RNA sequence: GGAGGCAGAGGAAGCACGGCCACGCAGCCAACAUACAGGGAGCUUGCUCCCAACAUGCUGCGGGGAAAGUCCCCGUGCCUUUGGGCAGAGAGUGUCAUUGGGAGACCAAAGGUCAGCAUUUGCAGCUUGCAGUGAAGCUUCGUGCCAAGCUGAUAGCUCAGAAGCUGGCCACUUGCAGCAGCACAGUCAUGCCGUGAGCACCCGAUGCAGGGUGCCAACCGAACGGGGCUCAUUCUCCCCAUGCCUC
Dot-bracket structure: .(((((.(.(((..((((((..((((((.........(((((....))))).....)))))).....[[.[[[[.........((((.....)))).((((....)))).(.(..((.(((..((((.((......((.....))...)).)...))).))).)).).).....................)))))).((((((......)))))).........]]]]]].....))).)..)))))